[Rfam]
RNA sequence: ACAGACGGAAAGCCGCGACGCUCGCCACACACCGGACUCGUCCCCCGACGCGUCCCCCUUUGCGAGCGGGCUAAGGUCUGAGCAUAAUCCUUCCCUCGUCCGACUCUUGCUGGGUCUCGUCUUCACCGACGGAACGACACACCAUCAACCCCCCUGCCGGCUCUCCCCACUAUGACCACCCCGCCUGGCGCCGCUGCAAAGGGAUGGGCCGAGUGGUCUGUGCGCCGUGUUCGGGUUGGGACAUGUCCUGGAAGUCGAGCCACCCUUCUUCUCGUCUACGCGCUCCGCCUCAAGCUGCUCCGUGGUCUCUGCUUCCUCGGGAAACGCAUAGGGGGCAUCUAAGUCCCGCUGGACAGGGUGUCCCUUCAACGCCCCGCUGGCGAGCGAACCAGAAGCCGAGCAAACGCGGACCGGAUGGCCUGGGUCGAGCUCUUGAGUACACUUCGCGGCUCGCCUCCUGCGGUUCCGUCUUCGGACUUCCGUGCUUCAGGGAGGCGAAACUCGAUUCAGACUACUCUUCGUCUGU
Numbered sequence: 001a002c003a004g005a006c007g008g009a010a011a012g013c014c015g016c017g018a019c020g021c022u023c024g025c026c027a028c029a030c031a032c033c034g035g036a037c038u039c040g041u042c043c044c045c046c047g048a049c050g051c052g053u054c055c056c057c058c059u060u061u062g063c064g065a066g067c068g069g070g071c072u073a074a075g076g077u078c079u080g081a082g083c084a085u086a087a088u089c090c091u092u093c094c095c096u097c098g099u100c101c102g103a104c105u106c107u108u109g110c111u112g113g114g115u116c117u118c119g120u121c122u123u124c125a126c127c128g129a130c131g132g133a134a135c136g137a138c139a140c141a142c143c144a145u146c147a148a149c150c151c152c153c154c155u156g157c158c159g160g161c162u163c164u165c166c167c168c169a170c171u172a173u174g175a176c177c178a179c180c181c182c183g184c185c186u187g188g189c190g191c192c193g194c195u196g197c198a199a200a201g202g203g204a205u206g207g208g209c210c211g212a213g214u215g216g217u218c219u220g221u222g223c224g225c226c227g228u229g230u231u232c233g234g235g236u237u238g239g240g241a242c243a244u245g246u247c248c249u250g251g252a253a254g255u256c257g258a259g260c261c262a263c264c265c266u267u268c269u270u271c272u273c274g275u276c277u278a279c280g281c282g283c284u285c286c287g288c289c290u291c292a293a294g295c296u297g298c299u300c301c302g303u304g305g306u307c308u309c310u311g312c313u314u315c316c317u318c319g320g321g322a323a324a325c326g327c328a329u330a331g332g333g334g335g336c337a338u339c340u341a342a343g344u345c346c347c348g349c350u351g352g353a354c355a356g357g358g359u360g361u362c363c364c365u366u367c368a369a370c371g372c373c374c375c376g377c378u379g380g381c382g383a384g385c386g387a388a389c390c391a392g393a394a395g396c397c398g399a400g401c402a403a404a405c406g407c408g409g410a411c412c413g414g415a416u417g418g419c420c421u422g423g424g425u426c427g428a429g430c431u432c433u434u435g436a437g438u439a440c441a442c443u444u445c446g447c448g449g450c451u452c453g454c455c456u457c458c459u460g461c462g463g464u465u466c467c468g469u470c471u472u473c474g475g476a477c478u479u480c481c482g483u484g485c486u487u488c489a490g491g492g493a494g495g496c497g498a499a500a501c502u503c504g505a506u507u508c509a510g511a512c513u514a515c516u517c518u519u520c521g522u523c524u525g526u
Stems, first nucleotide, its partner, number of pairs: 001526004007520003012450007020067005034055004039050003078510005088252003102116005117132005134249001136247004152235003451498009
Shown here is a 526-nucleotide sequence from Steccherinum ochraceum, a member of the family "Nuclear RNase P". The match comes from Rfam's covariance-model search (40 bits). Rfam describes the family as follows. Ribonuclease P (RNase P) is a ubiquitous endoribonuclease, found in archaea, bacteria and eukarya as well as chloroplasts and mitochondria. Its best characterised activity is the generation of mature 5'-ends of tRNAs by cleaving the 5'-leader elements of precursor-tRNAs. Cellular RNase Ps are ribonucleoproteins. RNA from bacterial RNase Ps retains its catalytic activity in the absence of the protein subunit, i.e. it is a ribozyme.